[Rfam]
RNA: Small nucleolar RNA psi28S-3316
Organism: Drosophila erecta
RNA sequence: AGCACCUCAAAGCGUUUUCUUGCCAGCCUAAUAAAUGCUCUUGAAAAUCGUAGUUGUGUGCAAUAGCAAUCUUUACAAUAGCAAGUGAUUCAGUUUCGUUAUAACUUCGAUCCGUUUACGUUGUGAACAUUC
Numbered sequence: 001a002g003c004a005c006c007u008c009a010a011a012g013c014g015u016u017u018u019c020u021u022g023c024c025a026g027c028c029u030a031a032u033a034a035a036u037g038c039u040c041u042u043g044a045a046a047a048u049c050g051u052a053g054u055u056g057u058g059u060g061c062a063a064u065a066g067c068a069a070u071c072u073u074u075a076c077a078a079u080a081g082c083a084a085g086u087g088a089u090u091c092a093g094u095u096u097c098g099u100u101a102u103a104a105c106u107u108c109g110a111u112c113c114g115u116u117u118a119c120g121u122u123g124u125g126a127a128c129a130u131u132c
Base pairs, nucleotide, nucleotide: 002061003060004059005058006056012051013050014049015047016046017045018044019043022038023037025036073126074125075124076123077122078121079120083117084116085115086114087113088111089110090109092106093105094104095103